[Rfam]
RNA sequence: GGACACGUGGUUCGUAAUUCUCCCACGUUAAAAAACUAUGAAACG
Numbered sequence: 001g002g003a004c005a006c007g008u009g010g011u012u013c014g015u016a017a018u019u020c021u022c023c024c025a026c027g028u029u030a031a032a033a034a035a036c037u038a039u040g041a042a043a044c045g
Base pairs, nucleotide, nucleotide: 006027007026008025009024010023015038016037
A member of the RNA family "PreQ1 (pre queuosine) riboswitch aptamer" from Bizionia argentinensis, 45 nucleotides long. Its family is annotated with queuosine biosynthetic process in the Gene Ontology. Rfam describes the family as follows. This family is a bacterial riboswitch that binds to the metabolite preQ1, an intermediate in the biosynthesis of the modified nucleoside queuosine from GTP. One example of this riboswitch is located in the leader of the Bacillus subtilis ykvJKLM (queCDEF) operon which encodes four genes necessary for queuosine production. PreQ1 binding to the riboswitch aptamer is thought to induce premature transcription termination within the leader to down-regulate expression of these genes. It scores 45 bits against the family's covariance model. A reference for the family is Reader et al. (2004), "Identification of four genes necessary for biosynthesis of the modified nucleoside queuosine", J Biol Chem. Lineage of the source: Bacteria > Pseudomonadati > Flavobacteriia > Flavobacteriales > Bizionia argentinensis.